[Rfam]
RNA sequence: UGGAAGAAUCUGUAAAGCUCAGGAGGGAUAGCGCCUUUUUAAUAAUGAUUUUAUCAUAGUUGUAUAUUUGGCGCUAUCCAUCCUGAGUUUCAUGGCUUCUUCAU
Numbered sequence: 001u002g003g004a005a006g007a008a009u010c011u012g013u014a015a016a017g018c019u020c021a022g023g024a025g026g027g028a029u030a031g032c033g034c035c036u037u038u039u040u041a042a043u044a045a046u047g048a049u050u051u052u053a054u055c056a057u058a059g060u061u062g063u064a065u066a067u068u069u070g071g072c073g074c075u076a077u078c079c080a081u082c083c084u085g086a087g088u089u090u091c092a093u094g095g096c097u098u099c100u101u102c103a104u
Base pairs, nucleotide, nucleotide: 010095016089017088018087019086020085021084022083023082024081026079027078028077029076030075031074032073033072034071035070